The record is an 86-nucleotide RNA from Thermacetogenium phaeum, which matches "Group II catalytic intron D1-D4-1" in Rfam. NCBI's taxonomy places the organism under Bacteria, Bacillota, Clostridia, Thermoanaerobacteraceae, Thermacetogenium phaeum. Group II introns are found in rRNA, tRNA and mRNA of organelles in fungi, plants and protists, and also in mRNA in bacteria.
[Rfam]
RNA sequence: UAACCUGUGUCGAGAGGCGCGGCUGAGCCGGCAGGAGUCAGCAGAGGGCAUAGUACCCUGGGGGACAUGAACUCAGGGGGAAGGCC
Numbered sequence: 001u002a003a004c005c006u007g008u009g010u011c012g013a014g015a016g017g018c019g020c021g022g023c024u025g026a027g028c029c030g031g032c033a034g035g036a037g038u039c040a041g042c043a044g045a046g047g048g049c050a051u052a053g054u055a056c057c058c059u060g061g062g063g064g065a066c067a068u069g070a071a072c073u074c075a076g077g078g079g080g081a082a083g084g085c086c
Base pairs, nucleotide, nucleotide: 001025002024005022006021007020008019009018010017011016038045039044047086048085049084056079057078058077060074061073062072